[Rfam]
RNA sequence: AGAACGAGUGCUAUCUAAAUAGCCUGAAUAUUUUGCUUUCCGAGUAGUGCCUUCAUCAAGAAGGCACUUUUUUUAUGUC
Dot-bracket structure: ((((.(((............(((..((...))..)))..........((((((.......))))))))).)))).....
Numbered sequence: 001a002g003a004a005c006g007a008g009u010g011c012u013a014u015c016u017a018a019a020u021a022g023c024c025u026g027a028a029u030a031u032u033u034u035g036c037u038u039u040c041c042g043a044g045u046a047g048u049g050c051c052u053u054c055a056u057c058a059a060g061a062a063g064g065c066a067c068u069u070u071u072u073u074u075a076u077g078u079c
Stems, first nucleotide, its partner, number of pairs: 001074004006069003021037003026032002048066006

Shown here is a 79-nucleotide RNA sequence from Mesocricetibacter intestinalis, a member of the family "Aggregatibacter sRNA 20". Taxonomically the source falls in Mesocricetibacter (Bacteria, Pseudomonadati, Gammaproteobacteria, Pasteurellaceae). About the family: Validated by RT-PCR and Northern blot.